The family of this 77-nucleotide RNA from Streptomyces mashuensis is "nrdJ RNA".
RNA sequence: ACCUGCCCGGCGCGCCCCGCGCGACCGGGUGAAAGACACACACCGCACCACGGAAGAUUUGGGUGCAUCAGGGCGUU
Numbered sequence: 001a002c003c004u005g006c007c008c009g010g011c012g013c014g015c016c017c018c019g020c021g022c023g024a025c026c027g028g029g030u031g032a033a034a035g036a037c038a039c040a041c042a043c044c045g046c047a048c049c050a051c052g053g054a055a056g057a058u059u060u061g062g063g064u065g066c067a068u069c070a071g072g073g074c075g076u077u
Stems, first nucleotide, its partner, number of pairs: 004031007012022004045066005050060001

NCBI's taxonomy places the organism under Bacteria, Bacillati, Actinomycetes, Streptomycetaceae, Streptomyces. The family's RNA type in Rfam is small RNA.